RNA: 5' ureB small RNA
Organism: Cryptosporangium aurantiacum
RNA sequence: CCUCCUCGACCUGCUGCGGCGCGAUCAAGUGGACGUGGCUGUCGACCGCGCCCGCGGUGAGGAUCUUGCCGUUGCCGGCCAGCACCUCGGUGGACGGUCCGAUGACCAGCGUCGGAUCGAUUCCGUCCUGCGUGUCGGGGUUGCCGGCCUUGCCGAUGCCGACGAUCCGGCCGUCCUUGACGCCGAUGUCGGCCUUGACGAUGCCCCAGUGAUCGAGGAUCAACGCCCCGGUGAUCACCAGGUCGGGGGCGCCCUCGGCGCGGGUCGCGCGGGACUGCCCCAUCGACUCGCGGAUG
Numbered sequence: 001c002c003u004c005c006u007c008g009a010c011c012u013g014c015u016g017c018g019g020c021g022c023g024a025u026c027a028a029g030u031g032g033a034c035g036u037g038g039c040u041g042u043c044g045a046c047c048g049c050g051c052c053c054g055c056g057g058u059g060a061g062g063a064u065c066u067u068g069c070c071g072u073u074g075c076c077g078g079c080c081a082g083c084a085c086c087u088c089g090g091u092g093g094a095c096g097g098u099c100c101g102a103u104g105a106c107c108a109g110c111g112u113c114g115g116a117u118c119g120a121u122u123c124c125g126u127c128c129u130g131c132g133u134g135u136c137g138g139g140g141u142u143g144c145c146g147g148c149c150u151u152g153c154c155g156a157u158g159c160c161g162a163c164g165a166u167c168c169g170g171c172c173g174u175c176c177u178u179g180a181c182g183c184c185g186a187u188g189u190c191g192g193c194c195u196u197g198a199c200g201a202u203g204c205c206c207c208a209g210u211g212a213u214c215g216a217g218g219a220u221c222a223a224c225g226c227c228c229c230g231g232u233g234a235u236c237a238c239c240a241g242g243u244c245g246g247g248g249g250c251g252c253c254c255u256c257g258g259c260g261c262g263g264g265u266c267g268c269g270c271g272g273g274a275c276u277g278c279c280c281c282a283u284c285g286a287c288u289c290g291c292g293g294a295u296g
Stems, first nucleotide, its partner, number of pairs: 001296001003294001005292001007290003012164002015161002018076004031052002034050002038047001040045001057069003077154002081150002085146001090144004095139001097136001099134001104131001106130001108129002111126002114123002170279001172277002176273004181267002183264002191227003195223003206215001231261001237255001241253002